[Rfam]
RNA sequence: UCAUAUUCAUCAUCAUCCUGACUAGUCUUUCGGGAGGAUACGCCUCACCCUGGAAGACAACAUUAUCUUCCAGUGGUCACAAGGAAUAAUCAAAUUCAGACCCUCGGAAGAUACAAGCUUCCGAGGGUUUUUUAAU
Numbered sequence: 001u002c003a004u005a006u007u008c009a010u011c012a013u014c015a016u017c018c019u020g021a022c023u024a025g026u027c028u029u030u031c032g033g034g035a036g037g038a039u040a041c042g043c044c045u046c047a048c049c050c051u052g053g054a055a056g057a058c059a060a061c062a063u064u065a066u067c068u069u070c071c072a073g074u075g076g077u078c079a080c081a082a083g084g085a086a087u088a089a090u091c092a093a094a095u096u097c098a099g100a101c102c103c104u105c106g107g108a109a110g111a112u113a114c115a116a117g118c119u120u121c122c123g124a125g126g127g128u129u130u131u132u133u134a135a136u
Base pairs, nucleotide, nucleotide: 010047012039013038014037017034018033019032020031021030050073051072052071053070054069055068056067057066092133093132094131098130099129100128101127102126103125104124105123106122107121108120109119110118
RNA: Histidine operon leader